[Rfam]
RNA sequence: GUGAUUGUAAUGUGCAGCAGCGGCUCCUAUAUAUGGGAUGUCUCUUCGGGGACUAUGGACAUAAACGCGCUCGUAAUAAGCGGAUCGGACCCGGGGGCGGUACCCGGCGACUCCACCAAUACUCCCUCGUUUGGGGACCAUGGGGUCGAAAUAGGAUCGACGGACGUCUAAAGGGGUUUGCUUUGUCUCGGUGAGUUACCACCGUUAUCGGUACACUAAAGCUAGUUGCAAACGACAACAAAGCUCCAAUGGCGAUGGCUGCGUAAGCAGUCGGAACUAUUGAAAACUUAAGCCCUUAGGCCUAGCAGCUUAAGGCGGGGUUUGCAGGUACCUGGCAACAGAAACCUGCGCU
Numbered sequence: 001g002u003g004a005u006u007g008u009a010a011u012g013u014g015c016a017g018c019a020g021c022g023g024c025u026c027c028u029a030u031a032u033a034u035g036g037g038a039u040g041u042c043u044c045u046u047c048g049g050g051g052a053c054u055a056u057g058g059a060c061a062u063a064a065a066c067g068c069g070c071u072c073g074u075a076a077u078a079a080g081c082g083g084a085u086c087g088g089a090c091c092c093g094g095g096g097g098c099g100g101u102a103c104c105c106g107g108c109g110a111c112u113c114c115a116c117c118a119a120u121a122c123u124c125c126c127u128c129g130u131u132u133g134g135g136g137a138c139c140a141u142g143g144g145g146u147c148g149a150a151a152u153a154g155g156a157u158c159g160a161c162g163g164a165c166g167u168c169u170a171a172a173g174g175g176g177u178u179u180g181c182u183u184u185g186u187c188u189c190g191g192u193g194a195g196u197u198a199c200c201a202c203c204g205u206u207a208u209c210g211g212u213a214c215a216c217u218a219a220a221g222c223u224a225g226u227u228g229c230a231a232a233c234g235a236c237a238a239c240a241a242a243g244c245u246c247c248a249a250u251g252g253c254g255a256u257g258g259c260u261g262c263g264u265a266a267g268c269a270g271u272c273g274g275a276a277c278u279a280u281u282g283a284a285a286a287c288u289u290a291a292g293c294c295c296u297u298a299g300g301c302c303u304a305g306c307a308g309c310u311u312a313a314g315g316c317g318g319g320g321u322u323u324g325c326a327g328g329u330a331c332c333u334g335g336c337a338a339c340a341g342a343a344a345c346c347u348g349c350g351c352u
Base pairs, nucleotide, nucleotide: 040053041052042051043050044049057188058187059186060185061184067181068180069177070176071175072174081166082165085163086162087161091107092106093105094104095103108148109147110146111145112144113143114142189204190203191202192201195214196213198212199211200210318333319332320331321330324349325348326347327346328345329344

A member of the RNA family "Alphaproteobacteria transfer-messenger RNA" from Litoreibacter arenae, 352 nucleotides long. Its family is annotated with RNA catabolic process in the Gene Ontology. The family is grouped with related families in Rfam's "tRNA clan". Pairs were carried over by alignment from the consensus structure, which is taken from published work.